A member of the RNA family "Small nucleolar RNA SNORA58" from Dromaius novaehollandiae, 135 nucleotides long.
Its family is annotated with RNA processing and nucleolus in the Gene Ontology.
On this family, see Huttenhofer et al., EMBO J 2001: "RNomics: an experimental approach that identifies 201 candidates for novel, small, non-messenger RNAs in mouse".
Rfam's curators write: ACA52 is a member of the H/ACA class of snoRNA that guide the sites of modification of uridines to pseudouridines.
Taxonomically the source falls in Dromaius (Eukaryota, Amniota, Sauropsida, Dinosauria).
RNA sequence: CUGCAUACCAGUAGACCUUAUCUGGUUCUUCUGAUAGCCAGACGAGGGGGAUGGUGCAUGCAACAAAAAGCCGGAGCUGCUGCAAGCUGUCAUCAGCCUUGAUGUGACUGAUUAGACUGCAAUACUCCAACAUAU
Numbered sequence: 001c002u003g004c005a006u007a008c009c010a011g012u013a014g015a016c017c018u019u020a021u022c023u024g025g026u027u028c029u030u031c032u033g034a035u036a037g038c039c040a041g042a043c044g045a046g047g048g049g050g051a052u053g054g055u056g057c058a059u060g061c062a063a064c065a066a067a068a069a070g071c072c073g074g075a076g077c078u079g080c081u082g083c084a085a086g087c088u089g090u091c092a093u094c095a096g097c098c099u100u101g102a103u104g105u106g107a108c109u110g111a112u113u114a115g116a117c118u119g120c121a122a123u124a125c126u127c128c129a130a131c132a133u134a135u
Stems, first nucleotide, its partner, number of pairs: 003061004008056001016047004021042004073128004078124001081121003093111004
By type it is an H/ACA-box small nucleolar RNA.